This 100-nucleotide RNA sequence from Maledivibacter halophilus belongs to the Rfam family "Pyrrolysine insertion sequence mttB". NCBI's taxonomy places the organism under Bacteria, Bacillota, Peptostreptococcales, Caminicellaceae, Maledivibacter. A reference for the family is Theil Have et al. (2013), "Effects of using coding potential, sequence conservation and mRNA structure conservation for predicting pyrroly-sine containing genes", BMC Bioinformatics. The match comes from Rfam's covariance-model search (42 bits).

[Rfam]
RNA sequence: UGCAGUGAUGCAAAAAUAGUAGAUGAACAGGUUAGUAUUGAGGAAGCUAUAACUAUAUUUGGUGCAGCAUUAAGUGGGGCCAAUAUAAUCCAUGACGUAG
Number, nucleotide and partner (000 for none) at each position: 001u012002g000003c000004a000005g000006u000007g000008a000009u000010g000011c000012a001013a000014a000015a000016a000017u000018a000019g000020u000021a000022g000023a000024u000025g032026a000027a000028c000029a000030g000031g000032u025033u062034a000035g060036u000037a000038u000039u000040g000041a000042g000043g000044a000045a000046g000047c000048u000049a000050u000051a000052a000053c000054u000055a000056u000057a000058u000059u000060u035061g000062g033063u000064g000065c000066a000067g000068c000069a000070u000071u000072a000073a000074g000075u000076g000077g098078g000079g096080c000081c000082a000083a000084u000085a000086u000087a000088a000089u000090c000091c000092a000093u000094g000095a000096c079097g000098u077099a000100g000